Shown here is a 109-nucleotide RNA sequence from Keratinibaculum paraultunense, a member of the family "Glycine riboswitch aptamer". NCBI's taxonomy places the organism under Bacteria, Bacillati, Tissierellia, Tepidimicrobiaceae, Keratinibaculum.
RNA sequence: AUGACAAAUACGGGAGAGACCAUUUACAUACAUGGCGCCGAAGGAAUAAGCUGUAUAAUAUCUGCCGAUAUACAGCGAUGAUCUCAGGCAAAAGGACCGUAUUUUGACG
Numbered sequence: 001a002u003g004a005c006a007a008a009u010a011c012g013g014g015a016g017a018g019a020c021c022a023u024u025u026a027c028a029u030a031c032a033u034g035g036c037g038c039c040g041a042a043g044g045a046a047u048a049a050g051c052u053g054u055a056u057a058a059u060a061u062c063u064g065c066c067g068a069u070a071u072a073c074a075g076c077g078a079u080g081a082u083c084u085c086a087g088g089c090a091a092a093a094g095g096a097c098c099g100u101a102u103u104u105u106g107a108c109g
Base pairs, nucleotide, nucleotide: 006104007103008102009101010100011099012098013097020035021034022033023032037089038088039087040085041084044083045082050076051075052074053073054072055071056070057069